A member of the RNA family "Rhizobiales sRNA Atu_At1", 108 nucleotides long. For this family Rfam cites "Deep sequencing uncovers numerous small RNAs on all four replicons of the plant pathogen Agrobacterium tumefaciens" (Wilms et al., RNA Biol, 2012). It scores 103 bits against the family's covariance model.
RNA sequence: UUGCAGAUCGUGCCAAGCGGACGCGAUGGUGCUGAAGAAUAUGGAGAUUUUUCCGCUUUCUCUCCAUAGCCGACGAAACGGCAGCCGAGCUUCCUACCCAUCCGAUCU
Numbered sequence: 001u002u003g004c005a006g007a008u009c010g011u012g013c014c015a016a017g018c019g020g021a022c023g024c025g026a027u028g029g030u031g032c033u034g035a036a037g038a039a040u041a042u043g044g045a046g047a048u049u050u051u052u053c054c055g056c057u058u059u060c061u062c063u064c065c066a067u068a069g070c071c072g073a074c075g076a077a078a079c080g081g082c083a084g085c086c087g088a089g090c091u092u093c094c095u096a097c098c099c100a101u102c103c104g105a106u107c108u
Base pairs, nucleotide, nucleotide: 006107007106008105009104011023012022014020025102026101027100028099029098034093035092036091037090040068041067042066043065044064045063046062069082070081071080
Notes: By type it is a small RNA.